[Rfam]
RNA sequence: CACUCUGGAAAGCGGAUGUCGGGACACCCGGCAUCCCACCGAAGGGGUAAGCGGCCGGUCCGAUCAGGGGCGGGCUGCGCAAUCUCUCAGGUCCCAUGACAGAGGG
Numbered sequence: 001c002a003c004u005c006u007g008g009a010a011a012g013c014g015g016a017u018g019u020c021g022g023g024a025c026a027c028c029c030g031g032c033a034u035c036c037c038a039c040c041g042a043a044g045g046g047g048u049a050a051g052c053g054g055c056c057g058g059u060c061c062g063a064u065c066a067g068g069g070g071c072g073g074g075c076u077g078c079g080c081a082a083u084c085u086c087u088c089a090g091g092u093c094c095c096a097u098g099a100c101a102g103a104g105g106g
Stems, first nucleotide, its partner, number of pairs: 001106001003104005014036008038092003041088002045086003051080002